This 44-nucleotide sequence from Bacillus infantis belongs to the Rfam family "Ribosomal protein L19 leader". The base pairs follow the family's consensus structure, which was predicted with CMfinder. About the family: This family is a putative r-protein leader autoregulatory structure found in B. subtilis and other low-GC Gram-positive bacteria. Rfam links the family to the GO term regulation of gene expression. On this family, see Zengel and Lindahl, Prog Nucleic Acid Res Mol Biol 1994: "Diverse mechanisms for regulating ribosomal protein synthesis in Escherichia coli". A search with the family's covariance model found it, with a score of 46 bits. The source organism's lineage runs through Bacteria, Bacillota, Bacilli, Bacillaceae and Bacillus infantis. It is annotated as a cis-regulatory leader.
RNA sequence: ACGAUGUUCCGCUGCAAUAAAGAAAGUCUGUGCAAGAGCAUCUG
Numbered sequence: 001a002c003g004a005u006g007u008u009c010c011g012c013u014g015c016a017a018u019a020a021a022g023a024a025a026g027u028c029u030g031u032g033c034a035a036g037a038g039c040a041u042c043u044g
Base pairs, nucleotide, nucleotide: 003042004041005040006039007038008037009036013034014033015032016031